[Rfam]
RNA sequence: UGUCCCUUAUCUGGGUGGAGUGGCAUCUGGUUGCUAAUGUUCAUCUCAAACCAGCCAGAGACAAGACAAUAUCUUGUUUAUCCCAACUUGGCUUUUGGUCUAUGUUCAAGACUCAUUAAUGCCUUGGACAUAUGG
Numbered sequence: 001u002g003u004c005c006c007u008u009a010u011c012u013g014g015g016u017g018g019a020g021u022g023g024c025a026u027c028u029g030g031u032u033g034c035u036a037a038u039g040u041u042c043a044u045c046u047c048a049a050a051c052c053a054g055c056c057a058g059a060g061a062c063a064a065g066a067c068a069a070u071a072u073c074u075u076g077u078u079u080a081u082c083c084c085a086a087c088u089u090g091g092c093u094u095u096u097g098g099u100c101u102a103u104g105u106u107c108a109a110g111a112c113u114c115a116u117u118a119a120u121g122c123c124u125u126g127g128a129c130a131u132a133u134g135g
Stems, first nucleotide, its partner, number of pairs: 001063004006058002011054004018047003022041005075130006090123003096119001098117001102113001105110001